[Rfam]
RNA: Manganese Mn2+ riboswitch aptamer (yybP-ykoY)
RNA sequence: CACACCGUCAUUGGGGAGUAGCCGACCCGCGUCAAUCGCGGGGGCCUGCGUCAACACACUUGGCCUCGCGGCCAUGGCGCAGGCAGUUCGCGAACCUGGCAAGACCUUUGACCAUGCCACCUCGGAUUUCUGGCCGGGAGGGGCGUGGUCAUCGGUUAUCUCCGGCCAGGGAGUUCU
Numbered sequence: 001c002a003c004a005c006c007g008u009c010a011u012u013g014g015g016g017a018g019u020a021g022c023c024g025a026c027c028c029g030c031g032u033c034a035a036u037c038g039c040g041g042g043g044g045c046c047u048g049c050g051u052c053a054a055c056a057c058a059c060u061u062g063g064c065c066u067c068g069c070g071g072c073c074a075u076g077g078c079g080c081a082g083g084c085a086g087u088u089c090g091c092g093a094a095c096c097u098g099g100c101a102a103g104a105c106c107u108u109u110g111a112c113c114a115u116g117c118c119a120c121c122u123c124g125g126a127u128u129u130c131u132g133g134c135c136g137g138g139a140g141g142g143g144c145g146u147g148g149u150c151a152u153c154g155g156u157u158a159u160c161u162c163c164g165g166c167c168a169g170g171g172a173g174u175u176c177u
Base pairs, nucleotide, nucleotide: 026042027041028040044084045083046082047081048080049079050078051077052076053075061074062073063072064071065070085177086176088172089171